[Rfam]
RNA: Glutamine-II riboswitch aptamer
Nucleotides: 058
Stems, first nucleotide, its partner, number of pairs: 004048005010022005035056006
Number, partner (000 for none) and nucleotide at each position: 001000a002000g003000c004048c005047g006046u007045u008044c009000a010022c011021c012020c013019u014018g015000g016000u017000u018014c019013a020012g021011g022010g023000c024000g025000c026000a027000g028000u029000g030000g031000u032000u033000c034000u035056c036055a037054g038053g039052u040051c041000a042000a043000g044008g045007a046006a047005c048004g049000g050000g051040g052039a053038c054037c055036u056035g057000u058000u